The record is a 130-nucleotide RNA from Streptomyces indicus, which matches "Streptomyces RNA 5676" in Rfam. About the family: Identified by deep sequencing of transcriptome at the end of exponential growth phase. Appears longer on northern blot than sequencing transcript.
RNA sequence: AGAUGAGAGAAACACCCCGCCCACAGGGGACUGUGGGCGACCCCGGAGCGGAGCCUCCCCAGCCCCGCUUCGGACGUGCCCUCGCGCACACAGCCGGAGUCCCAGGCUCUGGCGAACCUCACCGAUCGGA
Numbered sequence: 001a002g003a004u005g006a007g008a009g010a011a012a013c014a015c016c017c018c019g020c021c022c023a024c025a026g027g028g029g030a031c032u033g034u035g036g037g038c039g040a041c042c043c044c045g046g047a048g049c050g051g052a053g054c055c056u057c058c059c060c061a062g063c064c065c066c067g068c069u070u071c072g073g074a075c076g077u078g079c080c081c082u083c084g085c086g087c088a089c090a091c092a093g094c095c096g097g098a099g100u101c102c103c104a105g106g107c108u109c110u111g112g113c114g115a116a117c118c119u120c121a122c123c124g125a126u127c128g129g130a
Stems, first nucleotide, its partner, number of pairs: 004121004009117001018039009043073005049067003053063002076089004094112008122129002
NCBI's taxonomy places the organism under Bacteria, Bacillati, Actinomycetes, Kitasatosporales, Streptomyces. The base pairs follow the family's consensus structure.